Background:
The family of this 49-nucleotide RNA is "L31-Gammaproteobacteria ribosomal protein leader". On this family, see Eckert and Weinberg, BMC Microbiol 2020: "Discovery of 20 novel ribosomal leader candidates in bacteria and archaea". Its Rfam clan is "Ribosomal Protein L31 Leader clan". By type it is a cis-regulatory leader. It is one of the family's seed sequences.
RNA sequence: CGUAUGGUGUGCGGAGAGAGUCCGUAUAGCGAUGCGGCCCAAUUGAGGU
Numbered sequence: 001c002g003u004a005u006g007g008u009g010u011g012c013g014g015a016g017a018g019a020g021u022c023c024g025u026a027u028a029g030c031g032a033u034g035c036g037g038c039c040c041a042a043u044u045g046a047g048g049u
Base pairs, nucleotide, nucleotide: 001036002035003034004033005032007030008029011025012024013023014022015021